eL15-Euryarchaeota ribosomal protein leader: a 50-nucleotide RNA sequence.
Nucleotides: 050
Stems, first nucleotide, its partner, number of pairs: 001016005018045002025040005
Number, partner (000 for none) and nucleotide at each position: 001016g002015c003014g004013g005012g006000a007000u008000a009000c010000g011000u012005c013004c014003c015002g016001c017000a018045g019044g020000g021000a022000u023000g024000u025040g026039g027038c028037c029036c030000c031000u032000u033000c034000a035000a036029g037028g038027g039026c040025u041000g042000a043000a044019c045018c046000g047000u048000g049000a050000a

The family's consensus secondary structure is taken from published work. Rfam classes the family as a cis-regulatory leader. It is one of the family's seed sequences.